A member of the RNA family "U7 small nuclear RNA" from Mus musculus, 64 nucleotides long. Rfam 15.1 lists 10,439 matches to the family in 569 species.

RNA sequence: GAGUGAGUACAGCUCCUUUAGAAUUUUUUCUAGUAGGAUUUCUGACUUUGGUCUAAAAACCCAA
Numbered sequence: 001g002a003g004u005g006a007g008u009a010c011a012g013c014u015c016c017u018u019u020a021g022a023a024u025u026u027u028u029u030c031u032a033g034u035a036g037g038a039u040u041u042c043u044g045a046c047u048u049u050g051g052u053c054u055a056a057a058a059a060c061c062c063a064a
Stems, first nucleotide, its partner, number of pairs: 036061002039058003044053003

About this RNA:
About the family: Animal histone pre-mRNAs are spliced by a different mechanism than nuclear pre-mRNAs and self-splicing introns. This processing involves the U7 snRNP, which contains only one RNA species: U7. The 5' end of U7 RNA is thought to base-pair to a conserved spacer element downstream of the cleavage site in histone pre-mRNA. This family contains a number of annotated U7 pseudogenes. The organism belongs to Mus, within Eukaryota.